[Rfam]
RNA sequence: UCAGACGGUCGGACGGCCGCCGGUCCCGGCCCUUCGGGGAUCGGGAUGGGAGGAAAGUCCGGGCUCCACGGGAAUACGGUGCCGGGUAACACCCGGCGGGGGCGACCCCAGGGACAGUGCCACAGAAAGCAAACCGCCCGUUCCAGCCGGAUUUCGGUCCGGACCAGACGGGUAAGGGUGAAAGGGUGCGGUAAGAGCGCACCGCGUCUCCGGUAACGGCGACGGCAAGGUAAACCCCACCGGGAGCAAGACCGAAUAGGGAUGGCCGGUCGCGGCUUCGGCAACGAGGUCGGCGGCGGAUGCAUUCCCGCAUCGCUGUCCGGGUAGGUCGCGCGAGGCGGUCGGUAACGAUCGUCCCAGAUGAAUGGUCGUCACCCGCCGACCGGUCUCGUCCUUCGGGAUCGGGAAACCACGGCGGGAUACAGAACCCGGCUUACAGACCGUCUGAUCCG
Number, nucleotide and partner (000 for none) at each position: 001u448002c447003a446004g445005a444006c443007g442008g441009u440010c439011g437012g373013a372014c371015g370016g369017c368018c367019g000020c050021c049022g000023g047024u046025c045026c044027c043028g042029g000030c000031c000032c000033u000034u000035c000036g000037g000038g000039g000040a000041u000042c028043g027044g026045g025046a024047u023048g000049g021050g020051a000052g000053g000054a000055a435056a434057g433058u000059c432060c431061g430062g429063g428064c246065u245066c244067c243068a000069c000070g000071g000072g308073a000074a306075u000076a000077c242078g241079g240080u239081g238082c096083c095084g094085g093086g092087u000088a000089a000090c000091a000092c086093c085094c084095g083096g082097c111098g109099g108100g107101g106102g000103c000104g000105a000106c101107c100108c099109c098110a000111g097112g237113g236114a000115c000116a000117g235118u234119g231120c230121c229122a000123c000124a000125g000126a000127a000128a000129g000130c000131a000132a000133a000134c177135c176136g173137c172138c171139c170140g169141u168142u167143c000144c000145a000146g000147c000148c000149g000150g000151a000152u000153u000154u000155c000156g000157g000158u000159c000160c000161g000162g000163a000164c000165c000166a000167g142168a141169c140170g139171g138172g137173u136174a000175a000176g135177g134178g000179u000180g000181a000182a000183a000184g000185g203186g202187u201188g200189c199190g198191g000192u000193a000194a000195g000196a000197g000198c190199g189200c188201a187202c186203c185204g226205c224206g223207u222208c221209u000210c219211c218212g217213g000214u000215a000216a000217c212218g211219g210220c000221g208222a207223c206224g205225g000226c204227a000228a000229g121230g120231u119232a000233a000234a118235c117236c113237c112238c081239a080240c079241c078242g077243g067244g066245a065246g064247c000248a000249a000250g330251a329252c328253c327254g000255a000256a000257u000258a000259g000260g321261g320262a319263u318264g317265g316266c000267c000268g000269g000270u000271c000272g000273c000274g000275g000276c000277u000278u000279c000280g000281g000282c000283a000284a000285c000286g000287a000288g000289g000290u000291c000292g000293g000294c000295g000296g000297c000298g000299g314300a313301u312302g311303c310304a000305u000306u074307c000308c072309c000310g303311c302312a301313u300314c299315g000316c265317u264318g263319u262320c261321c260322g000323g000324g000325u000326a000327g253328g252329u251330c250331g000332c000333g000334c000335g000336a000337g356338g355339c354340g353341g352342u351343c350344g349345g000346u000347a000348a000349c344350g343351a342352u341353c340354g339355u338356c337357c000358c000359a000360g000361a000362u000363g000364a000365a000366u000367g018368g017369u016370c015371g014372u013373c012374a000375c000376c000377c000378g000379c000380c000381g000382a000383c000384c000385g000386g000387u000388c000389u000390c000391g000392u000393c000394c000395u000396u000397c000398g000399g000400g000401a000402u000403c000404g000405g000406g000407a000408a000409a000410c000411c000412a000413c000414g000415g000416c000417g000418g000419g000420a000421u000422a000423c000424a000425g000426a000427a000428c063429c062430c061431g060432g059433c057434u056435u055436a000437c011438a000439g010440a009441c008442c007443g006444u005445c004446u003447g002448a001449u000450c000451c000452g000
RNA: Bacterial RNase P class A
Organism: alpha proteobacterium BAL199